[Rfam]
Nucleotides: 106
Base pairs, nucleotide, nucleotide: 001106002105003104004103005102006101007100008099013042014041015040016039017038021031022030023029025080026079027078028077043072044071045070046069048068049067050064051063052062053061076098081095082094083093084092085091
Number, partner (000 for none) and nucleotide at each position: 001106u002105u003104c004103u005102u006101a007100u008099c009000a010000a011000g012000a013042g014041a015040a016039g017038c018000c019000g020000a021031g022030g023029g024000a025080c026079u027078g028077g029023c030022c031021c032000g033000u034000u035000g036000a037000c038017g039016c040015u041014u042013c043072a044071g045070c046069a047000a048068c049067c050064u051063c052062u053061g054000a055000c056000u057000u058000a059000g060000u061053c062052a063051g064050a065000a066000a067049g068048g069046u070045g071044c072043u073000a074000a075000c076098u077028c078027c079026a080025g081095c082094a083093g084092g085091a086000u087000u088000u089000u090000u091085u092084c093083u094082u095081g096000g097000g098076a099008g100007a101006u102005a103004a104003g105002a106001g